[Rfam]
RNA sequence: AUCGACCUCGGCAAUGGAUUUCUGCCGGGCAAUUUGGCCGAACCGCUCUGAUAAGAGCUGAUGAUUCCUACUUGGCG
Numbered sequence: 001a002u003c004g005a006c007c008u009c010g011g012c013a014a015u016g017g018a019u020u021u022c023u024g025c026c027g028g029g030c031a032a033u034u035u036g037g038c039c040g041a042a043c044c045g046c047u048c049u050g051a052u053a054a055g056a057g058c059u060g061a062u063g064a065u066u067c068c069u070a071c072u073u074g075g076c077g
Stems, first nucleotide, its partner, number of pairs: 010026004016068003020064002045058004

Shown here is a 77-nucleotide RNA sequence from Sphingomonas sp. Leaf20, a member of the family "Fluoride riboswitch aptamer (crcB RNA motif)". The family's consensus secondary structure is taken from published work.